Rfam assigns this 135-nucleotide sequence from Sinocyclocheilus anshuiensis to the family "Small nucleolar RNA SNORD10". Its family is annotated with nucleolus and RNA processing in the Gene Ontology. A search with the family's covariance model found it, with a score of 80 bits.

RNA sequence: GUUUUGUGAUGAUCCCCAUGCGUGUCAACUGAUCCCAGACUUCCUGGAGUGCUCCUGUCUGAUAAGCGUUUUGCUUAGCUGUGCAUUUGAGCCUGUAGGACUCUGGGAACAUGAUCUUAACUUUAGUAUGAAAAC
Numbered sequence: 001g002u003u004u005u006g007u008g009a010u011g012a013u014c015c016c017c018a019u020g021c022g023u024g025u026c027a028a029c030u031g032a033u034c035c036c037a038g039a040c041u042u043c044c045u046g047g048a049g050u051g052c053u054c055c056u057g058u059c060u061g062a063u064a065a066g067c068g069u070u071u072u073g074c075u076u077a078g079c080u081g082u083g084c085a086u087u088u089g090a091g092c093c094u095g096u097a098g099g100a101c102u103c104u105g106g107g108a109a110c111a112u113g114a115u116c117u118u119a120a121c122u123u124u125a126g127u128a129u130g131a132a133a134a135c
Stems, first nucleotide, its partner, number of pairs: 001135004042100005048094002